The family of this 73-nucleotide RNA from Crocodylus porosus is "Mammalian CPEB3 ribozyme". Rfam links the family to the GO term RNA nuclease activity. The mammalian CPEB3 ribozyme is a self cleaving RNA located in the second intron of the CPEB3 gene which belongs to a family of genes regulating messenger RNA polyadenylation.
[Rfam]
RNA sequence: ACAUGUUAGCUUCCAUAGCAGAAGUGCUUGUGUCAUGGCCCUGUCAGAUUCUAAUGAAUCUGUAAAUUCUGCU
Numbered sequence: 001a002c003a004u005g006u007u008a009g010c011u012u013c014c015a016u017a018g019c020a021g022a023a024g025u026g027c028u029u030g031u032g033u034c035a036u037g038g039c040c041c042u043g044u045c046a047g048a049u050u051c052u053a054a055u056g057a058a059u060c061u062g063u064a065a066a067u068u069c070u071g072c073u
Stems, first nucleotide, its partner, number of pairs: 009040001013038002017073007024036003045062007